Rfam assigns this 120-nucleotide sequence from Limosilactobacillus equigenerosi to the family "PyrR binding site". By type it is a cis-regulatory element. The family has 41 seed sequences and 1,498 matches in Rfam 15.1. The source organism's lineage runs through Bacteria, Bacilli, Lactobacillales, Limosilactobacillus and Limosilactobacillus equigenerosi. A search with the family's covariance model found it, with a score of 67 bits.
RNA sequence: UUUACCUUUAACUUUAGUCCCGUGAGGCUAAGAAGGUACUGUUCAAAUUCGUACACUAUCGAAGUGUAUGCUAAUUUUGUACUACCGUCUUGGCCUAAGUGCCAAGACGGUUUUGUUUUU
Numbered sequence: 001u002u003u004a005c006c007u008u009u010a011a012c013u014u015u016a017g018u019c020c021c022g023u024g025a026g027g028c029u030a031a032g033a034a035g036g037u038a039c040u041g042u043u044c045a046a047a048u049u050c051g052u053a054c055a056c057u058a059u060c061g062a063a064g065u066g067u068a069u070g071c072u073a074a075u076u077u078u079g080u081a082c083u084a085c086c087g088u089c090u091u092g093g094c095c096u097a098a099g100u101g102c103c104a105a106g107a108c109g110g111u112u113u114u115g116u117u118u119u120u
Stems, first nucleotide, its partner, number of pairs: 003038007014031006045077005051071003055065002080115002084111010